Annotation
Shown here is a 178-nucleotide RNA from Streptomyces sp. R302, a member of the family "c-di-AMP riboswitch aptamer (ydaO/yuaA leader)". This family represents a conserved RNA structure found upstream of the ydaO and yuaA genes in Bacillus subtilis and related genes in other bacteria. Its family is annotated with cyclic-di-AMP binding and regulation of gene expression in the Gene Ontology. A search with the family's covariance model found it, with a score of 64 bits. Taxonomically the source falls in Streptomyces (Bacteria, Bacillati, Actinomycetes, Kitasatosporales).
[Rfam]
Nucleotides: 178
Stems, first nucleotide, its partner, number of pairs: 011163004025158006035088001089143003097116006119137004
Number, partner (000 for none) and nucleotide at each position: 001000g002000u003000c004000g005000c006000g007000a008000a009000a010000g011163c012162g013161c014160c015000g016000u017000a018000g019000g020000c021000a022000g023000g024000a025158g026157u027156g028155g029154g030153g031000g032000a033000c034000c035088c036000a037000a038000g039000g040000u041000u042000c043000g044000u045000g046000c047000c048000g049000g050000u051000c052000c053000c054000g055000g056000c057000c058000g059000u060000c061000g062000a063000g064000u065000c066000a067000g068000a069000c070000g071000g072000a073000c074000g075000g076000a077000g078000c079000g080000a081000c082000c083000g084000g085000c086000u087000a088035g089143g090142g091141g092000u093000g094000a095000a096000g097116c098115c099114g100113c101112a102111c103000g104000c105000a106000a107000g108000g109000a110000c111102g112101u113100g114099c115098g116097g117000c118000c119137g120136g121135g122134c123000g124000a125000a126000c127000u128000c129000u130000u131000c132000a133000a134122g135121c136120c137119c138000g139000a140000a141091c142090c143089c144000g145000a146000c147000a148000g149000c150000u151000c152000a153030c154029c155028u156027c157026a158025c159000a160014g161013g162012c163011g164000u165000c166000g167000g168000u169000g170000a171000a172000g173000a174000g175000g176000a177000a178000a